[Rfam]
RNA sequence: AUGAAGCAUAAGGGAGACUUCCUUAAAUGGGGACCGAAGGGACAAGUCGAUAUCAUACCCACGGUAUUGAUGAAAUUCUCAGGUGAAUAUACUUUAUGUGGACA
Number, nucleotide and partner (000 for none) at each position: 001a000002u000003g000004a000005a000006g099007c098008a097009u096010a095011a094012g093013g092014g000015a000016g000017a000018c000019u000020u031021c030022c029023u000024u000025a000026a000027a000028u000029g022030g021031g020032g000033a084034c083035c082036g080037a079038a000039g000040g078041g077042a076043c000044a000045a000046g071047u070048c069049g068050a067051u066052a065053u064054c063055a000056u000057a000058c000059c000060c000061a000062c000063g054064g053065u052066a051067u050068u049069g048070a047071u046072g000073a000074a000075a000076u042077u041078c040079u037080c036081a000082g035083g034084u033085g000086a000087a000088u000089a000090u000091a000092c013093u012094u011095u010096a009097u008098g007099u006100g000101g000102a000103c000104a000

The family of this 104-nucleotide sequence from Peptacetobacter hominis is "Glycine riboswitch aptamer". Its family is annotated with glycine biosynthetic process in the Gene Ontology. A search with the family's covariance model found it, with a score of 47 bits.